[Rfam]
RNA sequence: CAAGGACUCAGGUGAAACUCCCGAGUGGCUCUUCCGGCCGCCGAUCCGCCGGACAACG
Dot-bracket structure: .....((((.(.........).))))......((((((.........)))))).....
Numbered sequence: 001c002a003a004g005g006a007c008u009c010a011g012g013u014g015a016a017a018c019u020c021c022c023g024a025g026u027g028g029c030u031c032u033u034c035c036g037g038c039c040g041c042c043g044a045u046c047c048g049c050c051g052g053a054c055a056a057c058g
Stems, first nucleotide, its partner, number of pairs: 006026004011021001033053006
Shown here is a 58-nucleotide sequence from Rhizobium sp. Leaf306, a member of the family "sul1 RNA". Pairs were carried over by alignment from the consensus structure, which is taken from published work.